[Rfam]
Rfam assigns this 204-nucleotide RNA from Pseudomonas corrugata to the family "Nitrogen regulated small RNA". For this family Rfam cites "NrsZ: a novel, processed, nitrogen-dependent, small non-coding RNA that regulates Pseudomonas aeruginosa PAO1 virulence" (Wenner et al., Environ Microbiol, 2014). The source organism's lineage runs through Bacteria, Pseudomonadati, Gammaproteobacteria, Pseudomonadaceae and Pseudomonas. Gene Ontology term of the family: bacterial-type flagellum-dependent swarming motility. From the family's description: Found in the opportunistic pathogen Pseudomonas aeruginosa PAO1. Its transcription is induced during nitrogen limitation by the NtrB/C two-component system (an important regulator of nitrogen assimilation and swarming motility) together with the alternative sigma factor RpoN (a global regulator involved in nitrogen metabolism).
RNA sequence: UACCCAGUUUCGGGGACCUUGGUACAGGCAGGCCGGGGAUUCCCCAUUUUAUUCGGGCUCAUCGAGCUCAUCGUUUUGGGGGCCUUGAUACAGGCAGGUCAAGGUUUCCCUUCUUUACACCAGGGCUGGAUCUUUGCGAUCGCCCUCCCGUUUUGGGGACCUUGGUACAGGCAGGCCGGGGAUUCCCCUCUUUUAUUGCUCCUG
Numbered sequence: 001u002a003c004c005c006a007g008u009u010u011c012g013g014g015g016a017c018c019u020u021g022g023u024a025c026a027g028g029c030a031g032g033c034c035g036g037g038g039a040u041u042c043c044c045c046a047u048u049u050u051a052u053u054c055g056g057g058c059u060c061a062u063c064g065a066g067c068u069c070a071u072c073g074u075u076u077u078g079g080g081g082g083c084c085u086u087g088a089u090a091c092a093g094g095c096a097g098g099u100c101a102a103g104g105u106u107u108c109c110c111u112u113c114u115u116u117a118c119a120c121c122a123g124g125g126c127u128g129g130a131u132c133u134u135u136g137c138g139a140u141c142g143c144c145c146u147c148c149c150g151u152u153u154u155g156g157g158g159a160c161c162u163u164g165g166u167a168c169a170g171g172c173a174g175g176c177c178g179g180g181g182a183u184u185c186c187c188c189u190c191u192u193u194u195a196u197u198g199c200u201c202c203u204g
Stems, first nucleotide, its partner, number of pairs: 012045005017038007078110005084103006123145004155188005161180006